[Rfam]
RNA sequence: GUGGCGCGGCCGCCGAGUCCGCGGUCAUCGCGGAGCCGGGGACCCAAUCCCCUUGGGGUGAAUCGGGACACCGUCCACGACGGCGUCCCGUAGGGCACUUCCACGCCCGAACCCGUCAGCUAACCCGGUAGGCGGCAUGGAAGCAAGGA
Numbered sequence: 001g002u003g004g005c006g007c008g009g010c011c012g013c014c015g016a017g018u019c020c021g022c023g024g025u026c027a028u029c030g031c032g033g034a035g036c037c038g039g040g041g042a043c044c045c046a047a048u049c050c051c052c053u054u055g056g057g058g059u060g061a062a063u064c065g066g067g068a069c070a071c072c073g074u075c076c077a078c079g080a081c082g083g084c085g086u087c088c089c090g091u092a093g094g095g096c097a098c099u100u101c102c103a104c105g106c107c108c109g110a111a112c113c114c115g116u117c118a119g120c121u122a123a124c125c126c127g128g129u130a131g132g133c134g135g136c137a138u139g140g141a142a143g144c145a146a147g148g149a
Base pairs, nucleotide, nucleotide: 011134012133013132014131018034019033020032021031022030023029024028035129036128037127038126039125040124045055046054056114057113058112064090065089066088067087068086069085093108094107095106096105
This 149-nucleotide sequence from Nonomuraea montanisoli belongs to the Rfam family "c-di-AMP riboswitch aptamer (ydaO/yuaA leader)". A search with the family's covariance model found it, with a score of 82 bits. NCBI's taxonomy places the organism under Bacteria, Actinomycetota, Actinomycetes, Streptosporangiales, Nonomuraea.